[Rfam]
RNA sequence: AUAUUAAUAUAGUAAUCACCUUGUAUAAGUUCAAGAAUAUGGCUUGAACGUUUCUACCAGCUACCAUAAAUAGCUUGUCUACGAGGUUUAGAAAAUGCAAA
Numbered sequence: 001a002u003a004u005u006a007a008u009a010u011a012g013u014a015a016u017c018a019c020c021u022u023g024u025a026u027a028a029g030u031u032c033a034a035g036a037a038u039a040u041g042g043c044u045u046g047a048a049c050g051u052u053u054c055u056a057c058c059a060g061c062u063a064c065c066a067u068a069a070a071u072a073g074c075u076u077g078u079c080u081a082c083g084a085g086g087u088u089u090a091g092a093a094a095a096u097g098c099a100a101a
Stems, first nucleotide, its partner, number of pairs: 018087008029049007058077002060074004
RNA: Purine riboswitch aptamer
Organism: Bacillus yapensis